[Rfam]
RNA sequence: UCCCGGCCCAGCCUGAAAUUUGCUAAACCUGGUCCAUUACGCAAGCAAGGUGAGCAAAUAUUCAGGUGUGUCGAAGA
Numbered sequence: 001u002c003c004c005g006g007c008c009c010a011g012c013c014u015g016a017a018a019u020u021u022g023c024u025a026a027a028c029c030u031g032g033u034c035c036a037u038u039a040c041g042c043a044a045g046c047a048a049g050g051u052g053a054g055c056a057a058a059u060a061u062u063c064a065g066g067u068g069u070g071u072c073g074a075a076g077a
Stems, first nucleotide, its partner, number of pairs: 004073004011067006018059004023054002026051001028050003
RNA: mir-87 microRNA precursor family